A member of the RNA family "Small nucleolar RNA SNORD73" from Pteropus alecto, 72 nucleotides long. The family's RNA type in Rfam is C/D-box small nucleolar RNA. The family has 25 seed sequences and 769 matches in Rfam 15.1. The family's consensus secondary structure was predicted with PFOLD. For this family Rfam cites "A novel snoRNA (U73) is encoded within the introns of the human and mouse ribosomal protein S3a genes" (Rebane et al., Gene, 1998). The organism belongs to Pteropus, within Eukaryota. Its family is annotated with RNA processing and nucleolus in the Gene Ontology.
RNA sequence: AAUGAAUGAUGACAAAAUGUUUUGGUCUCAUGAUAAUAUAUUGAUUAUAUCAUUAUAUUUAUUUCUGAUAUU
Numbered sequence: 001a002a003u004g005a006a007u008g009a010u011g012a013c014a015a016a017a018u019g020u021u022u023u024g025g026u027c028u029c030a031u032g033a034u035a036a037u038a039u040a041u042u043g044a045u046u047a048u049a050u051c052a053u054u055a056u057a058u059u060u061a062u063u064u065c066u067g068a069u070a071u072u
Stems, first nucleotide, its partner, number of pairs: 001072004